The record is a 148-nucleotide sequence from Shewanella sp. SNU WT4, which matches "Bacterial antisense RNA HPnc0260" in Rfam. It scores 71 bits against the family's covariance model. The literature on the family includes a 2010 paper in Nature by Sharma et al., "The primary transcriptome of the major human pathogen Helicobacter pylori". Pairs were carried over by alignment from the consensus structure, which was predicted with CMfinder.
[Rfam]
RNA sequence: UUAUUUAGAUUUUGGCACGAAUGUUUAAUGUUGAGGCACAGCAGGUAACAAAUGAAUUUGAAUUAAAGAAGGUAAUAAAUGAGGUUUUAUAGAGAGUUACAGCAAGAAAUGGUACACCCGAGUGGACUCGAACCACCGACCCCUACCA
Numbered sequence: 001u002u003a004u005u006u007a008g009a010u011u012u013u014g015g016c017a018c019g020a021a022u023g024u025u026u027a028a029u030g031u032u033g034a035g036g037c038a039c040a041g042c043a044g045g046u047a048a049c050a051a052a053u054g055a056a057u058u059u060g061a062a063u064u065a066a067a068g069a070a071g072g073u074a075a076u077a078a079a080u081g082a083g084g085u086u087u088u089a090u091a092g093a094g095a096g097u098u099a100c101a102g103c104a105a106g107a108a109a110u111g112g113u114a115c116a117c118c119c120g121a122g123u124g125g126a127c128u129c130g131a132a133c134c135a136c137c138g139a140c141c142c143c144u145a146c147c148a
Stems, first nucleotide, its partner, number of pairs: 024048002030042004057067003110145003119138002122136004